[Rfam]
RNA sequence: UUGCACAUAACACUCCGAGUUUUUAGAGCUACGUGUUCUGCAUAGGCGAUAAAAACCGAUGGGUUGAAAUGGAAACGUUUCAGCCUCCCGAUUCCGGUAGUGGCCGGAUGAAUUUGGAAAGGAGAAUGCAAUAGGCUUUGAA
Number, nucleotide and partner (000 for none) at each position: 001u000002u000003g136004c135005a000006c000007a000008u000009a000010a000011c128012a127013c124014u123015c122016c121017g000018a000019g056020u055021u054022u053023u052024u051025a050026g000027a000028g047029c046030u000031a000032c000033g043034u042035g041036u040037u000038c000039u000040g036041c035042a034043u033044a000045g000046g029047c028048g000049a000050u025051a024052a023053a022054a021055a020056c019057c000058g000059a000060u000061g086062g085063g084064u083065u082066g081067a080068a079069a078070u077071g076072g000073a000074a000075a000076c071077g070078u069079u068080u067081c066082a065083g064084c063085c062086u061087c117088c116089c000090g000091a000092u000093u000094c000095c000096g000097g000098u000099a000100g000101u000102g000103g000104c000105c000106g000107g000108a000109u000110g000111a000112a000113u000114u000115u000116g088117g087118a000119a000120a000121g016122g015123a014124g013125a000126a000127u012128g011129c000130a000131a000132u000133a000134g000135g004136c003137u000138u000139u000140g000141a000142a000
A member of the RNA family "Molybdenum/Tungsten riboswitch aptamer (Moco RNA motif)" from Sunxiuqinia elliptica, 142 nucleotides long. The organism belongs to Sunxiuqinia, within Bacteria. For this family Rfam cites "in molybdenum cofactor and tungsten cofactor metabolism" (Regulski et al., Mol Microbiol, 2008). Its family is annotated with regulation of gene expression, tungstate binding and molybdenum ion binding in the Gene Ontology. The base pairs follow the family's consensus structure, which is taken from published work.